The record is an 88-nucleotide sequence, which matches "tRNA" in Rfam. It is one of the family's seed sequences.

RNA sequence: GGAGAGAUGGCCGAGUGGUUUAUGGCGUCGGUCUUGAAAACCGAUAUAGUUUUUAAGAUUAUCGAGGGUUCAAAUCCCUCUCUCUCCU
Numbered sequence: 001g002g003a004g005a006g007a008u009g010g011c012c013g014a015g016u017g018g019u020u021u022a023u024g025g026c027g028u029c030g031g032u033c034u035u036g037a038a039a040a041c042c043g044a045u046a047u048a049g050u051u052u053u054u055a056a057g058a059u060u061a062u063c064g065a066g067g068g069u070u071c072a073a074a075u076c077c078c079u080c081u082c083u084c085u086c087c088u
Stems, first nucleotide, its partner, number of pairs: 001087007010026004028044005064080005

It is annotated as a transfer RNA. Its family is annotated with triplet codon-amino acid adaptor activity in the Gene Ontology.